[Rfam]
RNA sequence: CAAAAAAAGGUUGUUUUUUUUGUUCACCUCCAUUUUUUGCUACCCCCAGCGAAUUUGGGUCCGAACCCUGGGGUGUAGCAAAAAAUGGAGGUGAACAAAAAAAAAAACUUUUUUGGGCCAAAGGUUUUUUUUGU
Dot-bracket structure: ...............((((.((((((((((((((.((((..((((...........))))..................)))).)))))))))))))).)))).(((((((((.......)))))))))......
RNA: Phenylalanine leader peptide